[Rfam]
RNA sequence: UGGUCGGCAGUUCACCCAGGCGUCGCCGUCUCGCAAUGAGACACGCUAAACCUGCCA
Numbered sequence: 001u002g003g004u005c006g007g008c009a010g011u012u013c014a015c016c017c018a019g020g021c022g023u024c025g026c027c028g029u030c031u032c033g034c035a036a037u038g039a040g041a042c043a044c045g046c047u048a049a050a051c052c053u054g055c056c057a
Stems, first nucleotide, its partner, number of pairs: 002016003029041004
Dot-bracket structure: .(((.........)))............((((.....))))................
COG3860 RNA: a 57-nucleotide RNA from Chitinimonas arctica. The match comes from Rfam's covariance-model search (65 bits). NCBI's taxonomy places the organism under Bacteria, Pseudomonadati, Betaproteobacteria, Chitinibacteraceae, Chitinimonas.